A member of the RNA family "Small nucleolar RNA SNORD14" from Phaseolus vulgaris, 123 nucleotides long. From the family's description: U14 small nucleolar RNA (U14 snoRNA) is required for early cleavages of eukaryotic precursor rRNAs. Rfam links the family to the GO terms nucleolus and RNA processing. The base pairs follow the family's consensus structure, which was predicted with PFOLD. The literature on the family includes a 1996 paper in Nucleic Acids Res by Samarsky et al., "An essential domain in Saccharomyces cerevisiae U14 snoRNA is absent in vertebrates, but conserved in other yeasts".
RNA sequence: ACUCGAUGAUGAUAAAUCCAAAGGCUUGUUUCUCUGAACAUUCGCAGUGGCCGCCUAAGAGCUUUCGCCUUUCCCGGGUUUGAGAGCUAAUGCUGCUAUUUCCUUCCUUGGAUGUCUGAGAGU
Numbered sequence: 001a002c003u004c005g006a007u008g009a010u011g012a013u014a015a016a017u018c019c020a021a022a023g024g025c026u027u028g029u030u031u032c033u034c035u036g037a038a039c040a041u042u043c044g045c046a047g048u049g050g051c052c053g054c055c056u057a058a059g060a061g062c063u064u065u066c067g068c069c070u071u072u073c074c075c076g077g078g079u080u081u082g083a084g085a086g087c088u089a090a091u092g093c094u095g096c097u098a099u100u101u102c103c104u105u106c107c108u109u110g111g112a113u114g115u116c117u118g119a120g121a122g123u
Stems, first nucleotide, its partner, number of pairs: 001123004061087006